The family of this 64-nucleotide RNA sequence from Myotis myotis is "mir-9242 microRNA precursor family".
Rfam links the family to the GO terms miRNA-mediated post-transcriptional gene silencing and RISC complex.
The match comes from Rfam's covariance-model search (70 bits).

RNA sequence: GGUCUCCCUCUGUGGGGCGAUUGAUAGUGGGGCUUCAUGAUCAAUGGCUCCGCAGAGGGAGGCC
Numbered sequence: 001g002g003u004c005u006c007c008c009u010c011u012g013u014g015g016g017g018c019g020a021u022u023g024a025u026a027g028u029g030g031g032g033c034u035u036c037a038u039g040a041u042c043a044a045u046g047g048c049u050c051c052g053c054a055g056a057g058g059g060a061g062g063c064c
Stems, first nucleotide, its partner, number of pairs: 001064018020045006027038004